[Rfam]
RNA sequence: GACUAACCACAAAUCUAAUCAAAGCGCUCAAAUCGCUUAAAUGGUUAGUCCAGCCUACUUAGCAAUAAGUAAACGUUAUUUUGGUCACAAUACGUCAGAAUGCGUGGCCAGUUCUGACCUCUAUUGUUUGGCAUUAAACAGGUAAAGAGAUUUGAAAAACCAGUGUGUCGAACUUAACAAGCCAAAAUAACCAGGCGAGGCCAACUUUAC
Dot-bracket structure: ((((((((.(...............)................))))))))..((((((((......))))....(((((((((((....((..(((((((([..[[[[[.))))))))....)).(((((((((...((.(((...............))).))))))))))).......))))))))))).))))..]]]]]..]....
Numbered sequence: 001g002a003c004u005a006a007c008c009a010c011a012a013a014u015c016u017a018a019u020c021a022a023a024g025c026g027c028u029c030a031a032a033u034c035g036c037u038u039a040a041a042u043g044g045u046u047a048g049u050c051c052a053g054c055c056u057a058c059u060u061a062g063c064a065a066u067a068a069g070u071a072a073a074c075g076u077u078a079u080u081u082u083g084g085u086c087a088c089a090a091u092a093c094g095u096c097a098g099a100a101u102g103c104g105u106g107g108c109c110a111g112u113u114c115u116g117a118c119c120u121c122u123a124u125u126g127u128u129u130g131g132c133a134u135u136a137a138a139c140a141g142g143u144a145a146a147g148a149g150a151u152u153u154g155a156a157a158a159a160c161c162a163g164u165g166u167g168u169c170g171a172a173c174u175u176a177a178c179a180a181g182c183c184a185a186a187a188u189a190a191c192c193a194g195g196c197g198a199g200g201c202c203a204a205c206u207u208u209a210c
Stems, first nucleotide, its partner, number of pairs: 001050008010026001053196004057070004075191011090124002094118008102206001105203005126173009138164002141161003
Description: A member of the RNA family "HNH endonuclease-associated RNA and ORF (HEARO) RNA" from Okeania hirsuta, 210 nucleotides long. NCBI's taxonomy places the organism under Bacteria, Bacillati, Cyanobacteriota, Cyanophyceae, Okeania. The match comes from Rfam's covariance-model search (100 bits). On this family, see Weinberg et al., Nature 2009: "Exceptional structured noncoding RNAs revealed by bacterial metagenome analysis".